RNA sequence: CCGGCACCUUUGACGGUCUGCCUAUAAACCUGCCACUGGUGAGGCAGACCCGAGAACCUGGCGUG
Numbered sequence: 001c002c003g004g005c006a007c008c009u010u011u012g013a014c015g016g017u018c019u020g021c022c023u024a025u026a027a028a029c030c031u032g033c034c035a036c037u038g039g040u041g042a043g044g045c046a047g048a049c050c051c052g053a054g055a056a057c058c059u060g061g062c063g064u065g
Stems, first nucleotide, its partner, number of pairs: 001065001004062002015050009030038001032036001
About this RNA
The record is a 65-nucleotide sequence from Otolemur garnettii, which matches "Selenocysteine insertion sequence 1" in Rfam. The family's RNA type in Rfam is cis-regulatory element. The incorporation of selenocysteine into a protein sequence is directed by an in-frame UGA codon (usually a stop codon) within the coding region of the mRNA. Selenoprotein mRNAs contain a conserved secondary structure in the 3' UTR that is required for the distinction of UGA stop from UGA selenocysteine. The selenocysteine insertion sequence (SECIS) is around 60 nt in length and adopts a hairpin structure which is sufficiently well-defined and conserved to act as a computational screen for selenoprotein genes. The base pairs follow the family's consensus structure, which is taken from published work.